[Rfam]
A member of the RNA family "Bacterial large subunit ribosomal RNA" from Desulfotignum phosphitoxidans, 361 nucleotides of a longer RNA.
Gene Ontology terms of the family: ribosome and structural constituent of ribosome.
It scores 2933 bits against the family's covariance model.
RNA sequence: UGAGAGAACUCUGGUUAAGGAACUCGGCAAAAUCAUACCGUAACUUCGGGAGAAGGUAUGCCCCUGAUGGUGAUUAUAAUUCUAUAUGAGCUGUGGGGGGCCGCAGAGAAAUGGUGGUAGCGACUGUUUACUAAAAACAUAGGACUCUGCAAAGUCGUAAGACGAGGUAUAGGGUCUGACGCCUGCCCGGUGCCGGAAGGUUAAGGGGAUUUGUUAGCCGCAAGGCGAAGCACUGAACCGAAGCCCCGGUAAACGGCGGCCGUAACUAUAACGGUCCUAAGGUAGCGAAAUUCCUUGUCGGGUAAGUUCCGACCUGCACGAAUGGCGUAACGACUUCCACACUGUCUCAACCAGGGACUCA
Numbered sequence: 001u002g003a004g005a006g007a008a009c010u011c012u013g014g015u016u017a018a019g020g021a022a023c024u025c026g027g028c029a030a031a032a033u034c035a036u037a038c039c040g041u042a043a044c045u046u047c048g049g050g051a052g053a054a055g056g057u058a059u060g061c062c063c064c065u066g067a068u069g070g071u072g073a074u075u076a077u078a079a080u081u082c083u084a085u086a087u088g089a090g091c092u093g094u095g096g097g098g099g100g101c102c103g104c105a106g107a108g109a110a111a112u113g114g115u116g117g118u119a120g121c122g123a124c125u126g127u128u129u130a131c132u133a134a135a136a137a138c139a140u141a142g143g144a145c146u147c148u149g150c151a152a153a154g155u156c157g158u159a160a161g162a163c164g165a166g167g168u169a170u171a172g173g174g175u176c177u178g179a180c181g182c183c184u185g186c187c188c189g190g191u192g193c194c195g196g197a198a199g200g201u202u203a204a205g206g207g208g209a210u211u212u213g214u215u216a217g218c219c220g221c222a223a224g225g226c227g228a229a230g231c232a233c234u235g236a237a238c239c240g241a242a243g244c245c246c247c248g249g250u251a252a253a254c255g256g257c258g259g260c261c262g263u264a265a266c267u268a269u270a271a272c273g274g275u276c277c278u279a280a281g282g283u284a285g286c287g288a289a290a291u292u293c294c295u296u297g298u299c300g301g302g303u304a305a306g307u308u309c310c311g312a313c314c315u316g317c318a319c320g321a322a323u324g325g326c327g328u329a330a331c332g333a334c335u336u337c338c339a340c341a342c343u344g345u346c347u348c349a350a351c352c353a354g355g356g357a358c359u360c361a
Stems, first nucleotide, its partner, number of pairs: 001361004009356008018347003035059005044049001060101006075088004102106001114340004119335002121332002125139003142177008150167001154163003180327004185257003190254002192250005199245003205239002212232003217226002258276006277281001287314001297313006